RNA: MIR807 microRNA precursor family
Organism: Oryza sativa
RNA sequence: AACCACACUACAUAUGAAUAGAUUCAUUUAUGAGAUGACGUGGUUGUUCUAUUUAGGAUGAGGACGUGGCAUCCUAUUAAUUUCGUGCGAUCGCUGGUAAUAGGAUGCCAUGUCAUCGUCCUAGGUAAAACAAACACGUCAUCUCGGGUGAAUUUAUUCAUCGAUAGUGUGGUU
Numbered sequence: 001a002a003c004c005a006c007a008c009u010a011c012a013u014a015u016g017a018a019u020a021g022a023u024u025c026a027u028u029u030a031u032g033a034g035a036u037g038a039c040g041u042g043g044u045u046g047u048u049c050u051a052u053u054u055a056g057g058a059u060g061a062g063g064a065c066g067u068g069g070c071a072u073c074c075u076a077u078u079a080a081u082u083u084c085g086u087g088c089g090a091u092c093g094c095u096g097g098u099a100a101u102a103g104g105a106u107g108c109c110a111u112g113u114c115a116u117c118g119u120c121c122u123a124g125g126u127a128a129a130a131c132a133a134a135c136a137c138g139u140c141a142u143c144u145c146g147g148g149u150g151a152a153u154u155u156a157u158u159c160a161u162c163g164a165u166a167g168u169g170u171g172g173u174u
Stems, first nucleotide, its partner, number of pairs: 001174007009166002014161002017158003021154008032145002035142005041136002044133005051126002054123002057120002063114003069108011086097001